[Rfam]
RNA: mir-499 microRNA precursor family
Organism: Aquarana catesbeiana
RNA sequence: GAGUGUGAAGCCGUUAAGACUUGCAGUGAUGUUUAGUUAAAGCCAUUUCUUGAACAUCACUUUAAGUCUGUACUGCUUCCC
Numbered sequence: 001g002a003g004u005g006u007g008a009a010g011c012c013g014u015u016a017a018g019a020c021u022u023g024c025a026g027u028g029a030u031g032u033u034u035a036g037u038u039a040a041a042g043c044c045a046u047u048u049c050u051u052g053a054a055c056a057u058c059a060c061u062u063u064a065a066g067u068c069u070g071u072a073c074u075g076c077u078u079c080c081c
Stems, first nucleotide, its partner, number of pairs: 017069007026060010